[Rfam]
Nucleotides: 147
Base pairs, nucleotide, nucleotide: 002061003060004059005058006057007056008055009053013049015047016046017045020042021041022040024035025034075139076138077137078136079135088128089127093124094123095122097120098119099118
Number, partner (000 for none) and nucleotide at each position: 001000g002061g003060u004059c005058u006057g007056a008055u009053g010000c011000c012000a013049c014000u015047u016046c017045u018000g019000c020042g021041g022040u023000a024035g025034c026000u027000c028000a029000a030000u031000u032000a033000u034025g035024c036000a037000u038000u039000g040022a041021c042020u043000a044000a045017a046016g047015a048000u049013g050000c051000u052000a053009u054000g055008a056007u057006u058005a059004g060003a061002u062000c063000u064000a065000u066000a067000u068000c069000a070000a071000u072000u073000u074000u075139u076138u077137g078136c079135a080000u081000u082000u083000u084000g085000a086000u087000g088128g089127g090000a091000a092000c093124c094123u095122a096000u097120g098119g099118a100000u101000c102000g103000a104000a105000u106000u107000u108000a109000c110000a111000a112000u113000a114000u115000u116000u117000u118099u119098c120097c121000a122095u123094g124093g125000a126000c127089c128088c129000g130000u131000u132000u133000u134000u135079u136078g137077c138076a139075a140000u141000u142000a143000c144000a145000a146000u147000u